A member of the RNA family "mir-46/mir-47/mir-281 microRNA precursor family" from Medioppia subpectinata, 121 nucleotides long. The literature on the family includes a 2001 paper in Science by Lau et al., "An abundant class of tiny RNAs with probable regulatory roles in Caenorhabditis elegans". Lineage of the source: Eukaryota > Bilateria > Panarthropoda > Oppioidea > Medioppia. The base pairs follow the family's consensus structure, which was predicted with RNAalifold. Rfam 15.1 lists 307 matches to the family in 262 species.

[Rfam]
RNA sequence: AAGUAUUGUUCAUGAAGAGAGCUUAUCCGUGGACAGUUGGGUUAAUAACACUGCCAUUAAAAUCCCAAUUAACCAAAUUGUGAUAGACUGUCAUGGAGUUGCUCUCUUUAUGACAAUCGCU
Dot-bracket structure: .............(((((.(((...((((..(((.((.................................................)).))).))))...))).)))))............

The match comes from Rfam's covariance-model search (64 bits). Rfam links the family to the GO terms RISC complex and miRNA-mediated post-transcriptional gene silencing.